RNA sequence: AUUGAGGCUUGACUCACAUCCUGGCAUUCUCAUUGUCCUGUUGUGAUAUAGUACUCGUAGAGGAAACUUAUUUGCUUAUUCAUUGGCUAGGCCACAGACUACAGCCAAUCACUGGUUGGUUCAUAUAC
Numbered sequence: 001a002u003u004g005a006g007g008c009u010u011g012a013c014u015c016a017c018a019u020c021c022u023g024g025c026a027u028u029c030u031c032a033u034u035g036u037c038c039u040g041u042u043g044u045g046a047u048a049u050a051g052u053a054c055u056c057g058u059a060g061a062g063g064a065a066a067c068u069u070a071u072u073u074g075c076u077u078a079u080u081c082a083u084u085g086g087c088u089a090g091g092c093c094a095c096a097g098a099c100u101a102c103a104g105c106c107a108a109u110c111a112c113u114g115g116u117u118g119g120u121u122c123a124u125a126u127a128c
Stems, first nucleotide, its partner, number of pairs: 003057004007052003012047001015045004020040001023037004070120003074116003082109005088103001089100002
Rfam assigns this 128-nucleotide sequence from Salmo trutta to the family "Small nucleolar RNA SNORA3/SNORA45 family". Rfam links the family to the GO terms RNA processing and nucleolus. About the family: The members of this family belong to the H/ACA class of snoRNAs which are thought to guide the sites of modification of uridines to pseudouridines. This family includes mouse snoMBI-28 and human homologues ACA3 (SNORA3) and ACA3-2 (SNORA45). Pairs were carried over by alignment from the consensus structure, which was predicted with RNAalifold. The family has 6 seed sequences and 2,080 matches in Rfam 15.1. By type it is an H/ACA-box small nucleolar RNA. The match comes from Rfam's covariance-model search (53 bits).